[Rfam]
RNA sequence: ACCACUGAGCCAUCUCUCCAGCCCAUAUACAGCUUUAGAAAAAUAUAGUAAAGGGGGCUGGAGAGAUGGCUCAGCAGU
Numbered sequence: 001a002c003c004a005c006u007g008a009g010c011c012a013u014c015u016c017u018c019c020a021g022c023c024c025a026u027a028u029a030c031a032g033c034u035u036u037a038g039a040a041a042a043a044u045a046u047a048g049u050a051a052a053g054g055g056g057g058c059u060g061g062a063g064a065g066a067u068g069g070c071u072c073a074g075c076a077g078u
Stems, first nucleotide, its partner, number of pairs: 002077001005074020

Shown here is a 78-nucleotide RNA sequence from Nannospalax galili, a member of the family "mir-3473 microRNA precursor family". Taxonomically the source falls in Nannospalax (Eukaryota, Bilateria, Vertebrata, Spalacinae).